[Rfam]
RNA: MIR5565 microRNA precursor family
Nucleotides: 108
Stems, first nucleotide, its partner, number of pairs: 004107011016095017035076003039072001041070003044066003
Number, partner (000 for none) and nucleotide at each position: 001000a002000c003000u004107c005106u006105a007104g008103u009102a010101u011100u012099c013098a014097c015000c016095c017094c018093a019092a020091u021090c022089c023088a024087c025086a026085u027084g028083u029082a030081u031080u032079g033000a034000g035076g036075u037074g038000u039072a040000c041070u042069g043068g044066g045065u046064g047000u048000a049000a050000a051000u052000u053000g054000a055000a056000c057000u058000a059000a060000u061000u062000u063000a064046c065045a066044c067000c068043c069042c070041a071000a072039u073000c074037c075036a076035c077000c078000u079032c080031a081030a082029u083028a084027c085026a086025u087024g088023u089022g090021g091020a092019u093018u094017g095016g096000g097014g098013u099012g100011a101010a102009u103008g104007c105006u106005a107004g108000a